The family of this 98-nucleotide RNA sequence from Vallitalea pronyensis is "TPP riboswitch aptamer (THI element)". It scores 78 bits against the family's covariance model.
RNA sequence: AAUAUGUGCUAGGGGAGCCUUGGGCUGAGAAAGUAAAGUACUGACCCUUAUAACCUGAUUCGGAUAAUGCCGACGAAGGGAAGCGUUAAGUAAUACAU
Dot-bracket structure: .....(((((((((..(((...)))......((((...))))..)))).....(((...((((......))))...)))..)))))............